[Rfam]
RNA sequence: AUGAAAUGAUGAUGUUGUUUAUCCAUUCUCUGAGUAUUGCCAGUUGCCAGUCCUUGCAGCACUUGAUCUGUUCUAGAUCCGAGUGUGACAGCCCCAUUUACUGUAAAGGUGGCCCAGUGUUCUACUGAGUGCCUUGUGGUAUUUGGUAGCUGUUGUAGGAUUGGUCAAUCUGACAUGGGCGCAGUGUCUGCCUAACAAAGACGAGGAUUCAACUCUGAUCAU
Numbered sequence: 001a002u003g004a005a006a007u008g009a010u011g012a013u014g015u016u017g018u019u020u021a022u023c024c025a026u027u028c029u030c031u032g033a034g035u036a037u038u039g040c041c042a043g044u045u046g047c048c049a050g051u052c053c054u055u056g057c058a059g060c061a062c063u064u065g066a067u068c069u070g071u072u073c074u075a076g077a078u079c080c081g082a083g084u085g086u087g088a089c090a091g092c093c094c095c096a097u098u099u100a101c102u103g104u105a106a107a108g109g110u111g112g113c114c115c116a117g118u119g120u121u122c123u124a125c126u127g128a129g130u131g132c133c134u135u136g137u138g139g140u141a142u143u144u145g146g147u148a149g150c151u152g153u154u155g156u157a158g159g160a161u162u163g164g165u166c167a168a169u170c171u172g173a174c175a176u177g178g179g180c181g182c183a184g185u186g187u188c189u190g191c192c193u194a195a196c197a198a199a200g201a202c203g204a205g206g207a208u209u210c211a212a213c214u215c216u217g218a219u220c221a222u
Stems, first nucleotide, its partner, number of pairs: 010221004017214001019212002024206001026205003030200002034196002039174001041172002043169004048164001050162001051160004057155001059086007066078004088153005100140003106135006113129001115127005176194006183187001
Shown here is a 222-nucleotide sequence from Erpetoichthys calabaricus, a member of the family "Small nucleolar RNA SNORD17". Rfam's curators write: The snoRNA HBI-43 belongs to the C/D family of snoRNAs, guiding 2'O-ribose methylation at position U3797 of the 28S rRNA. Pseudouridylation in position U3797 is predicted to be guided by the H/ACA snoRNA ACA48. It is annotated as a C/D-box small nucleolar RNA. The base pairs follow the family's consensus structure, which was predicted with RNAalifold. Gene Ontology terms of the family: nucleolus and RNA processing. It scores 78 bits against the family's covariance model. Lineage of the source: Eukaryota > Craniata > Vertebrata > Gnathostomata > Erpetoichthys.